[Rfam]
Rfam assigns this 73-nucleotide RNA from Lasiosphaeris hirsuta to the family "bZIP non canonical Hac1/Xbp1 intron". About the family: bZIP intron RNA is a non-canonical intron that was first reported in HAC1 gene in yeast and XBP1 gene in Metazoa. On this family, see Hooks and Griffiths-Jones, RNA Biol 2011: "Conserved RNA structures in the non-canonical Hac1/Xbp1 intron".

RNA sequence: UGCUUCUCCCGAUGCGACACAACAUCCUGCAGAGAUGUUGUGGCUAGACCUGCAGUGUCGGUCGGCGGAAGCA
Numbered sequence: 001u002g003c004u005u006c007u008c009c010c011g012a013u014g015c016g017a018c019a020c021a022a023c024a025u026c027c028u029g030c031a032g033a034g035a036u037g038u039u040g041u042g043g044c045u046a047g048a049c050c051u052g053c054a055g056u057g058u059c060g061g062u063c064g065g066c067g068g069a070a071g072c073a
Stems, first nucleotide, its partner, number of pairs: 001073007009065005021039006047059003
Annotation:
It scores 51 bits against the family's covariance model.